[Rfam]
RNA sequence: UAGACAACCACUGGAGAGGUCUGAUGACAUGGAGCUUUCUAAUGUUAUAUUCAUAAUAUUACGAAAAGAAAGAUAGGAGCUUUUCGAUAUAUGUGAAAAUAUAAUAUAUGAAUGUGAAUGUUAACUCAGGCGCCGAAGGUGUAAGGUGAUAUUUAAAUUUUUAGAAGAAUCACUAAUCUCUCAGGCAAAAGGACAGGAGGAAUAUU
Dot-bracket structure: .......(..(((......((((.......................................................................................................)))).(((((..(.(...(...........................)....).))).))).......)))..).......
This 206-nucleotide sequence from Eubacterium ventriosum belongs to the Rfam family "Glycine riboswitch aptamer".
The pairing is the family consensus, mapped onto this sequence.
The source organism's lineage runs through Bacteria, Bacillati, Bacillota, Eubacteriales and Eubacterium.
It scores 34 bits against the family's covariance model.